RNA sequence: UGCGUAUUUUGCCCAGGCGGAGCUCGACCGCCGCUCCAAGCCAUGAAGGCGUUUAUCGACGAGCAUCGUGAGAUCUACGGGGUCGAGCCGAUCUGCCGUGUGCUGCCGAUCGCCCCG
Numbered sequence: 001u002g003c004g005u006a007u008u009u010u011g012c013c014c015a016g017g018c019g020g021a022g023c024u025c026g027a028c029c030g031c032c033g034c035u036c037c038a039a040g041c042c043a044u045g046a047a048g049g050c051g052u053u054u055a056u057c058g059a060c061g062a063g064c065a066u067c068g069u070g071a072g073a074u075c076u077a078c079g080g081g082g083u084c085g086a087g088c089c090g091a092u093c094u095g096c097c098g099u100g101u102g103c104u105g106c107c108g109a110u111c112g113c114c115c116c117g
Base pairs, nucleotide, nucleotide: 016032017031018030019029020028078117079116080115081114082113089112090111092109093108095106096105098103
RNA: ALIL pseudoknot